[Rfam]
The family of this 408-nucleotide RNA from Monosporascus sp. 5C6A is "Group I catalytic intron".
RNA sequence: CUACUGGCUUUGAGGAAUAUGUUAUAGCAAUUUCUCCUAAUUUAGAAAAUUUAAACACUAUAGAAAUCCGAGGGUUACUAAGUACAUAUUUAGAUAAUAAUCGUCCAUCUCCCCCUUCUUUCGAUUCAUAAUAGUUCUUUUUUUUAGAUAAAACACACCUAGUUGAGUUAGAUUAUUCUAGUUCACUAGUCCUAAUAUCAGAAGCAUUUAAUUUAGUUGAAUAUAUAGCAUAAUGUGCUCUUUAAAUCGGGCUAAUUGCUGGAAAAUCUUUAAUUAAGACAAUCAGCAGGAAACCAACGGAUAUGUUUAUUAUAUUCCUGGUAGGAUCUUCAGAGACUACACGCCCGACAUCUGAUUUAAAACUAAAUCUAGAUGAUGAUAUAGUCCAAUCUCUGCUGUGAAGUAGAG
Numbered sequence: 001c002u003a004c005u006g007g008c009u010u011u012g013a014g015g016a017a018u019a020u021g022u023u024a025u026a027g028c029a030a031u032u033u034c035u036c037c038u039a040a041u042u043u044a045g046a047a048a049a050u051u052u053a054a055a056c057a058c059u060a061u062a063g064a065a066a067u068c069c070g071a072g073g074g075u076u077a078c079u080a081a082g083u084a085c086a087u088a089u090u091u092a093g094a095u096a097a098u099a100a101u102c103g104u105c106c107a108u109c110u111c112c113c114c115c116u117u118c119u120u121u122c123g124a125u126u127c128a129u130a131a132u133a134g135u136u137c138u139u140u141u142u143u144u145u146a147g148a149u150a151a152a153a154c155a156c157a158c159c160u161a162g163u164u165g166a167g168u169u170a171g172a173u174u175a176u177u178c179u180a181g182u183u184c185a186c187u188a189g190u191c192c193u194a195a196u197a198u199c200a201g202a203a204g205c206a207u208u209u210a211a212u213u214u215a216g217u218u219g220a221a222u223a224u225a226u227a228g229c230a231u232a233a234u235g236u237g238c239u240c241u242u243u244a245a246a247u248c249g250g251g252c253u254a255a256u257u258g259c260u261g262g263a264a265a266a267u268c269u270u271u272a273a274u275u276a277a278g279a280c281a282a283u284c285a286g287c288a289g290g291a292a293a294c295c296a297a298c299g300g301a302u303a304u305g306u307u308u309a310u311u312a313u314a315u316u317c318c319u320g321g322u323a324g325g326a327u328c329u330u331c332a333g334a335g336a337c338u339a340c341a342c343g344c345c346c347g348a349c350a351u352c353u354g355a356u357u358u359a360a361a362a363c364u365a366a367a368u369c370u371a372g373a374u375g376a377u378g379a380u381a382u383a384g385u386c387c388a389a390u391c392u393c394u395g396c397u398g399u400g401a402a403g404u405a406g407a408g
Base pairs, nucleotide, nucleotide: 005029007028008027009026011024012023013022247348248347249346250345252343257288258287259286260285261284262283267279268278269277270276289329290328294324295320300316301315302314303313304312333387335386336385337384338383339382351373352372353371354370357367358366393406394405395404396403397402
Description:
The base pairs follow the family's consensus structure, which is taken from published work. Group I catalytic introns are large self-splicing ribozymes. They catalyse their own excision from mRNA, tRNA and rRNA precursors in a wide range of organisms. The core secondary structure consists of 9 paired regions (P1-P9).